The record is a 171-nucleotide sequence from Blautia argi, which matches "Lysine riboswitch aptamer" in Rfam. Its family is annotated with lysine biosynthetic process in the Gene Ontology.

[Rfam]
RNA sequence: AUACAUGAUAGAGGCGCAGGUUUCAAGAGUAUUCUUCUGUAAAAGGCAGGGCAGCCGCAGAGGAAGAAAGGGGAAACUGCCGAAGAAGGAAAAUCUGCCCGGGGUUUUUCUUCUGGGACACUGCAGAAUAUGCAGCGUACUGUCACAACGAUGUGGAGCGCUAUCAUCACU
Dot-bracket structure: .....((((((....((((.((((.......((((((((..................))))))))......)))).))))...((((((((((((.......))))))))))))((.((.(((((.....))))).)).)).(((((....)))))....)))))).....
Numbered sequence: 001a002u003a004c005a006u007g008a009u010a011g012a013g014g015c016g017c018a019g020g021u022u023u024c025a026a027g028a029g030u031a032u033u034c035u036u037c038u039g040u041a042a043a044a045g046g047c048a049g050g051g052c053a054g055c056c057g058c059a060g061a062g063g064a065a066g067a068a069a070g071g072g073g074a075a076a077c078u079g080c081c082g083a084a085g086a087a088g089g090a091a092a093a094u095c096u097g098c099c100c101g102g103g104g105u106u107u108u109u110c111u112u113c114u115g116g117g118a119c120a121c122u123g124c125a126g127a128a129u130a131u132g133c134a135g136c137g138u139a140c141u142g143u144c145a146c147a148a149c150g151a152u153g154u155g156g157a158g159c160g161c162u163a164u165c166a167u168c169a170c171u
Stems, first nucleotide, its partner, number of pairs: 006166006016080004021075004032065008084114012115141002118138002121135005143156005